[Rfam]
Nucleotides: 094
Base pairs, nucleotide, nucleotide: 007081008080009079010078011044012043013042014041016038017031019029020028021027050075051074052073053072056069057068058067059066
Number, partner (000 for none) and nucleotide at each position: 001000u002000u003000u004000g005000a006000u007081g008080g009079c010078g011044c012043g013042g014041g015000g016038u017031g018000u019029c020028g021027u022000g023000a024000u025000a026000a027021a028020c029019g030000u031017c032000u033000g034000a035000g036000a037000a038016a039000u040000a041014c042013c043012c044011g045000u046000u047000g048000a049000a050075c051074u052073u053072g054000a055000u056069c057068u058067g059066g060000u061000u062000c063000g064000u065000a066059c067058c068057a069056g070000c071000g072053u073052a074051a075050g076000a077000a078010c079009g080008c081007c082000u083000u084000a085000g086000u087000c088000u089000g090000u091000a092000u093000u094000c